RNA sequence: GGAAAUUUGAGAGGAGCUGUCCUUAGUACGAGAGGACCGGGAUGGACACACCGCUGGUGUACCAGUUGUUCUGCCAGGAGCAUAGCUGGGUAGCUACGUGUGGACGGGAUAAACGCUGAAAGCAUCUAAGCGUGAAGCCCCCCUCAAGAUGAGAUUUCCCAUUCGAAAGAAGUAAGAUCCCUUGAAGACGACGAGGUUGAUAGGUCAGGAGUGGAAGUGUGGUGACACAUGGAGCGGACUGAUACUAAUCGAUCGAGG
Numbered sequence: 001g002g003a004a005a006u007u008u009g010a011g012a013g014g015a016g017c018u019g020u021c022c023u024u025a026g027u028a029c030g031a032g033a034g035g036a037c038c039g040g041g042a043u044g045g046a047c048a049c050a051c052c053g054c055u056g057g058u059g060u061a062c063c064a065g066u067u068g069u070u071c072u073g074c075c076a077g078g079a080g081c082a083u084a085g086c087u088g089g090g091u092a093g094c095u096a097c098g099u100g101u102g103g104a105c106g107g108g109a110u111a112a113a114c115g116c117u118g119a120a121a122g123c124a125u126c127u128a129a130g131c132g133u134g135a136a137g138c139c140c141c142c143c144u145c146a147a148g149a150u151g152a153g154a155u156u157u158c159c160c161a162u163u164c165g166a167a168a169g170a171a172g173u174a175a176g177a178u179c180c181c182u183u184g185a186a187g188a189c190g191a192c193g194a195g196g197u198u199g200a201u202a203g204g205u206c207a208g209g210a211g212u213g214g215a216a217g218u219g220u221g222g223u224g225a226c227a228c229a230u231g232g233a234g235c236g237g238a239c240u241g242a243u244a245c246u247a248a249u250c251g252a253u254c255g256a257g258g
Base pairs, nucleotide, nucleotide: 001159002158003157004156005155006154007153008152011145012144013143014142017045018044019043020042021041022040023039047102048101049100050099051098055096056095057094062089063088064087065086066085067082068081069080070079071078072077106140107139108138113133114132115131116130117129162171163170164169173256176254177253178252179251180196181195182194183193184192201247202246203245204243205242206241207240208239211235217230218229219228220227221226
About this RNA:
Shown here is a 258-nucleotide part of an RNA from Turicibacter sp. H121, a member of the family "Bacterial large subunit ribosomal RNA". Its family is annotated with structural constituent of ribosome and ribosome in the Gene Ontology. It scores 2972 bits against the family's covariance model.